DUF3800-IX RNA: a 71-nucleotide RNA. Actinobacteria, Firmicutes (1 example), Nitrospirae, Proteobacteria, Verrucomicrobia (1 example). By type it is a small RNA. The base pairs follow the family's consensus structure, which is taken from published work.

[Rfam]
Nucleotides: 071
Base pairs, nucleotide, nucleotide: 002066003065004064005063006062008060009059010058011057017033018032019031020030021029022028036054037053038052039051040050
Number, partner (000 for none) and nucleotide at each position: 001000u002066c003065c004064c005063a006062c007000c008060c009059a010058g011057c012000g013000a014000a015000g016000a017033g018032c019031u020030a021029c022028c023000g024000g025000a026000a027000g028022g029021g030020u031019a032018g033017c034000c035000u036054g037053c038052c039051u040050g041000g042000a043000c044000a045000a046000g047000c048000a049000c050040c051039a052038g053037g054036c055000u056000a057011g058010c059009u060008g061000g062006g063005u064004g065003g066002g067000u068000u069000u070000u071000c